RNA sequence: ACCGGUACUUUAGCGCAGUACUGUCAACCGAGCGGUGGUAGAGGGAUGAAUUUACGCACUGUGGGAUCACGUCCCCAGCUGUCCCACGUUGAUGACAGUGUCUGAUUGAGAAUGAUGUUACUAGUGUUGGCCUGGAGUAGUCCGAGCCAACUCGGGUAUUAAAUAUGCGGGCACCGCCAAAGUCUAGCAAUAGAGCAUGGAAAACCGCAAGCAUUGUUCGGCAAGCAGAUGGCACGUCUAAGUGGAUCGCAGUUGGAACGCCAUAGUGGUCGUGGAGACUACCCCUUGU
Numbered sequence: 001a002c003c004g005g006u007a008c009u010u011u012a013g014c015g016c017a018g019u020a021c022u023g024u025c026a027a028c029c030g031a032g033c034g035g036u037g038g039u040a041g042a043g044g045g046a047u048g049a050a051u052u053u054a055c056g057c058a059c060u061g062u063g064g065g066a067u068c069a070c071g072u073c074c075c076c077a078g079c080u081g082u083c084c085c086a087c088g089u090u091g092a093u094g095a096c097a098g099u100g101u102c103u104g105a106u107u108g109a110g111a112a113u114g115a116u117g118u119u120a121c122u123a124g125u126g127u128u129g130g131c132c133u134g135g136a137g138u139a140g141u142c143c144g145a146g147c148c149a150a151c152u153c154g155g156g157u158a159u160u161a162a163a164u165a166u167g168c169g170g171g172c173a174c175c176g177c178c179a180a181a182g183u184c185u186a187g188c189a190a191u192a193g194a195g196c197a198u199g200g201a202a203a204a205c206c207g208c209a210a211g212c213a214u215u216g217u218u219c220g221g222c223a224a225g226c227a228g229a230u231g232g233c234a235c236g237u238c239u240a241a242g243u244g245g246a247u248c249g250c251a252g253u254u255g256g257a258a259c260g261c262c263a264u265a266g267u268g269g270u271c272g273u274g275g276a277g278a279c280u281a282c283c284c285c286u287u288g289u
Stems, first nucleotide, its partner, number of pairs: 001039003004022006011015001027036003041287005047281002051276006057268007065261001070260003074256002077253001079252002084245004089240001094238003098235004102228003106224003110219009119158004124153001126151006133144004159165001166209005177200003184193003
Annotation:
The family of this 289-nucleotide RNA sequence from Umbelopsis vinacea is "Metazoan signal recognition particle RNA". A reference for the family is Wild et al. (2002), "Towards the structure of the mammalian signal recognition particle", Curr Opin Struct Biol. It is annotated as a non-coding RNA gene. Rfam 15.1 lists 383,523 matches to the family in 1,221 species. Rfam describes the family as follows. The signal recognition particle (SRP) is a universally conserved ribonucleoprotein. The organism belongs to Umbelopsis, within Eukaryota.